[Rfam]
This 406-nucleotide RNA from Novosphingobium ginsenosidimutans belongs to the Rfam family "Bacterial RNase P class A". The organism belongs to Novosphingobium, within Bacteria. It scores 304 bits against the family's covariance model. It is annotated as a ribozyme. Rfam describes the family as follows. Ribonuclease P (RNase P) is a ubiquitous endoribonuclease, found in archaea, bacteria and eukarya as well as chloroplasts and mitochondria.
RNA sequence: CCAGGGGGCCGGGCAGCCGCGGGGUUCGCAAGAACCGCGAGGAAAGUCCGGGCUCCACGAAACAAGGGUGGCGGGUAACGCCCGCCGGGCGAGUUGCUUGCAGCGAAGCCCAGGGAAAGUGCCACAGAGAGCAGACCGCCUCAUUCAUGAGGUAAGGGUGAAAGGGUGCGGUAAGAGCGCACCGGGGGCCUGGUAACAGGCACCGCACGGCAAACCCCACCCGGAGCAAGACCGAAUAGGGGCGGCGCGCACUUCGGUGCAGGUCAGUUUCGGACCCGACCGCCCGGGUUGGUUGCUUGAGCCUGGUGGCGACACCAGGCCUAGAGGAAUGGCUGCCAGUGCGGAUACGGUCUCUUGUGGGAUACCGUCCGCGCUACAGAACCCGGCUUACAGGCCCCCUGGCAAA
Numbered sequence: 001c002c003a004g005g006g007g008g009c010c011g012g013g014c015a016g017c018c019g020c021g022g023g024g025u026u027c028g029c030a031a032g033a034a035c036c037g038c039g040a041g042g043a044a045a046g047u048c049c050g051g052g053c054u055c056c057a058c059g060a061a062a063c064a065a066g067g068g069u070g071g072c073g074g075g076u077a078a079c080g081c082c083c084g085c086c087g088g089g090c091g092a093g094u095u096g097c098u099u100g101c102a103g104c105g106a107a108g109c110c111c112a113g114g115g116a117a118a119g120u121g122c123c124a125c126a127g128a129g130a131g132c133a134g135a136c137c138g139c140c141u142c143a144u145u146c147a148u149g150a151g152g153u154a155a156g157g158g159u160g161a162a163a164g165g166g167u168g169c170g171g172u173a174a175g176a177g178c179g180c181a182c183c184g185g186g187g188g189c190c191u192g193g194u195a196a197c198a199g200g201c202a203c204c205g206c207a208c209g210g211c212a213a214a215c216c217c218c219a220c221c222c223g224g225a226g227c228a229a230g231a232c233c234g235a236a237u238a239g240g241g242g243c244g245g246c247g248c249g250c251a252c253u254u255c256g257g258u259g260c261a262g263g264u265c266a267g268u269u270u271c272g273g274a275c276c277c278g279a280c281c282g283c284c285c286g287g288g289u290u291g292g293u294u295g296c297u298u299g300a301g302c303c304u305g306g307u308g309g310c311g312a313c314a315c316c317a318g319g320c321c322u323a324g325a326g327g328a329a330u331g332g333c334u335g336c337c338a339g340u341g342c343g344g345a346u347a348c349g350g351u352c353u354c355u356u357g358u359g360g361g362a363u364a365c366c367g368u369c370c371g372c373g374c375u376a377c378a379g380a381a382c383c384c385g386g387c388u389u390a391c392a393g394g395c396c397c398c399c400u401g402g403c404a405a406a
Stems, first nucleotide, its partner, number of pairs: 001402010011391001012337007020039002023036005044389003048386005053226004062270001064268001066222005071085005086113001087111004114217002119215002121211003136157002138153006165183006184206001185204002188201005230294004240285006262276004301320008